[Rfam]
U4atac minor spliceosomal RNA: a 125-nucleotide RNA sequence from Diceros bicornis. Its Rfam clan is "U4 clan". Rfam links the family to the GO terms spliceosomal tri-snRNP complex assembly, U4atac snRNP and pre-mRNA 5'-splice site binding. Taxonomically the source falls in Diceros bicornis (Eukaryota, Craniata, Gnathostomata, Rhinocerotidae). Rfam describes the family as follows. U4atac is an essential component of the minor U12-type spliceosome complex which is required for removal of the rarer class of eukaryotic introns (AT-AC, U12-type).

RNA sequence: ACCACCCUUUUCUUAGGGUUGGCUACUGUCCAAUGAGCAUGUGGUGAGGGCAGUACUGCUAAUGCCUGAACAACACACCCGCAUCAACCAGAUCUCUGCUUUACGUUGGUGUAAUUUUUGGAAAA
Numbered sequence: 001a002c003c004a005c006c007c008u009u010u011u012c013u014u015a016g017g018g019u020u021g022g023c024u025a026c027u028g029u030c031c032a033a034u035g036a037g038c039a040u041g042u043g044g045u046g047a048g049g050g051c052a053g054u055a056c057u058g059c060u061a062a063u064g065c066c067u068g069a070a071c072a073a074c075a076c077a078c079c080c081g082c083a084u085c086a087a088c089c090a091g092a093u094c095u096c097u098g099c100u101u102u103a104c105g106u107u108g109g110u111g112u113a114a115u116u117u118u119u120g121g122a123a124a125a
Base pairs, nucleotide, nucleotide: 006018007017008016009015021059022057025054026053027052028051029050030049031048037045038044081112082111083110084109085108086107090102091101092100094098